Shown here is a 73-nucleotide sequence from Aquila chrysaetos, a member of the family "mir-1744 microRNA precursor family".
RNA sequence: AGGACCCGGUGCUCCUCUGUUGAACUCAAAAGCAGAGCCUGUGUUGACUUUGACAGGAGCAAGACUGAGCCCU
Number, nucleotide and partner (000 for none) at each position: 001a000002g071003g070004a000005c069006c000007c067008g066009g065010u064011g000012c000013u061014c000015c059016u058017c057018u055019g054020u053021u052022g051023a050024a049025c000026u047027c046028a045029a044030a000031a042032g000033c041034a000035g000036a000037g000038c000039c000040u000041g033042u031043g000044u029045u028046g027047a026048c000049u024050u023051u022052g021053a020054c019055a018056g000057g017058a016059g015060c000061a013062a000063g000064a010065c009066u008067g007068a000069g005070c003071c002072c000073u000